[Rfam]
The family of this 161-nucleotide sequence from Nocardioides thalensis is "c-di-AMP riboswitch aptamer (ydaO/yuaA leader)".
RNA sequence: CGCUGAGUCCGGGACCGCCCGCGGUCCCGGAGCCGGGGAACCACUCUUCCUGGGGUGAAUCCCGUGCAAGGCGCACCUCCCCGUCACCAGGUGGGGUCGUGCGAGGAGCACGGGUAGGGCAAAUGUCGUGCCCGAACCCGUCAGCUCACCCGGUAGGCGUA
Numbered sequence: 001c002g003c004u005g006a007g008u009c010c011g012g013g014a015c016c017g018c019c020c021g022c023g024g025u026c027c028c029g030g031a032g033c034c035g036g037g038g039a040a041c042c043a044c045u046c047u048u049c050c051u052g053g054g055g056u057g058a059a060u061c062c063c064g065u066g067c068a069a070g071g072c073g074c075a076c077c078u079c080c081c082c083g084u085c086a087c088c089a090g091g092u093g094g095g096g097u098c099g100u101g102c103g104a105g106g107a108g109c110a111c112g113g114g115u116a117g118g119g120c121a122a123a124u125g126u127c128g129u130g131c132c133c134g135a136a137c138c139c140g141u142c143a144g145c146u147c148a149c150c151c152g153g154u155a156g157g158c159g160u161a
Stems, first nucleotide, its partner, number of pairs: 001159004008031010032154006042052002053139003061114007117133004
The source organism's lineage runs through Bacteria, Bacillati, Actinomycetota, Nocardioidaceae and Nocardioides.